[Rfam]
RNA sequence: AAAAAGGGUAUCUGCCAUGACUGGCACAGGGACAGGCAGAGGCUCUCUGUCUUCCCUGUGGAAUCAUCAUCAAGAGAUUUCAGAUGCGUAAUUUUUUAUCUCUGGGGUUGCUAAUGACCAAUUUGUCUUGGUGCUCCU
Numbered sequence: 001a002a003a004a005a006g007g008g009u010a011u012c013u014g015c016c017a018u019g020a021c022u023g024g025c026a027c028a029g030g031g032a033c034a035g036g037c038a039g040a041g042g043c044u045c046u047c048u049g050u051c052u053u054c055c056c057u058g059u060g061g062a063a064u065c066a067u068c069a070u071c072a073a074g075a076g077a078u079u080u081c082a083g084a085u086g087c088g089u090a091a092u093u094u095u096u097u098a099u100c101u102c103u104g105g106g107g108u109u110g111c112u113a114a115u116g117a118c119c120a121a122u123u124u125g126u127c128u129u130g131g132u133g134c135u136c137c138u
Stems, first nucleotide, its partner, number of pairs: 008087005013026005027058005034052007059082007105136004110132005116127003
U11 spliceosomal RNA: a 138-nucleotide RNA from Clupea harengus. The base pairs follow the family's consensus structure, which is taken from published work. Rfam 15.1 lists 2,595 matches to the family in 1,202 species. Rfam classes the family as a spliceosomal small nuclear RNA.